Shown here is an 86-nucleotide RNA sequence from Elaeis guineensis, a member of the family "Small nucleolar RNA Z162". For this family Rfam cites "The high diversity of snoRNAs in plants: identification and comparative study of 120 snoRNA genes from Oryza sativa" (Chen et al., Nucleic Acids Res, 2003).

[Rfam]
RNA sequence: UUGGGCACAAUGAAGAAGUUGCUAAUGAUUGGGUGAGGCAAUGUCUGAUGGGUAUACCUAUGAGUCCUUUUCAUUCUGAGUGCCCA
Numbered sequence: 001u002u003g004g005g006c007a008c009a010a011u012g013a014a015g016a017a018g019u020u021g022c023u024a025a026u027g028a029u030u031g032g033g034u035g036a037g038g039c040a041a042u043g044u045c046u047g048a049u050g051g052g053u054a055u056a057c058c059u060a061u062g063a064g065u066c067c068u069u070u071u072c073a074u075u076c077u078g079a080g081u082g083c084c085c086a
Stems, first nucleotide, its partner, number of pairs: 004084005010074007